[Rfam]
RNA sequence: GGGGACCUUUGGGGCCCUUCAUAUCAGAGACGGACCUGUAGAGGUCCGCAAAGCAGACGGAAGACAGAAA
Number, nucleotide and partner (000 for none) at each position: 001g018002g017003g016004g015005a000006c014007c013008u012009u000010u000011g000012g008013g007014g006015c004016c003017c002018u001019u000020c000021a000022u000023a000024u000025c000026a000027g000028a000029g000030a000031c048032g047033g046034a045035c044036c043037u042038g000039u000040a000041g000042a037043g036044g035045u034046c033047c032048g031049c000050a000051a000052a000053g000054c000055a000056g000057a000058c000059g000060g000061a000062a000063g000064a000065c000066a000067g000068a000069a000070a000

Shown here is a 70-nucleotide sequence from Rubellimicrobium rubrum, a member of the family "L2-Alphaproteobacteria ribosomal protein leader". A search with the family's covariance model found it, with a score of 57 bits. Lineage of the source: Bacteria > Pseudomonadati > Alphaproteobacteria > Roseobacteraceae > Rubellimicrobium.